Shown here is a 153-nucleotide RNA sequence from Enterobacter sp. 638, a member of the family "sroC RNA". It is annotated as a small RNA. The organism belongs to Enterobacter, within Bacteria. Rfam links the family to the GO terms regulation of RNA stability and RNA binding.
RNA sequence: ACUAAUUAGAACCAUAGGGGCGGGAUCUCCUGCCCUCUCGAUUGUCGGGAAGCGUGGACAGACUAUACGCUGAGUGGUCGUUCCCCACUCAGCGCGAAAAUUGAGCUUCUCACCAAUCUUCGAGGGUAGCGCUGCUACCCUUUUUUUUCUGGA
Numbered sequence: 001a002c003u004a005a006u007u008a009g010a011a012c013c014a015u016a017g018g019g020g021c022g023g024g025a026u027c028u029c030c031u032g033c034c035c036u037c038u039c040g041a042u043u044g045u046c047g048g049g050a051a052g053c054g055u056g057g058a059c060a061g062a063c064u065a066u067a068c069g070c071u072g073a074g075u076g077g078u079c080g081u082u083c084c085c086c087a088c089u090c091a092g093c094g095c096g097a098a099a100a101u102u103g104a105g106c107u108u109c110u111c112a113c114c115a116a117u118c119u120u121c122g123a124g125g126g127u128a129g130c131g132c133u134g135c136u137a138c139c140c141u142u143u144u145u146u147u148u149c150u151g152g153a
Stems, first nucleotide, its partner, number of pairs: 012152003018035004022030002036125005041117004047111002059096001069093009
Source information: The literature on the family includes a 2003 paper in Nucleic Acids Res by Vogel et al., "RNomics in Escherichia coli detects new sRNA species and indicates parallel transcriptional output in bacteria".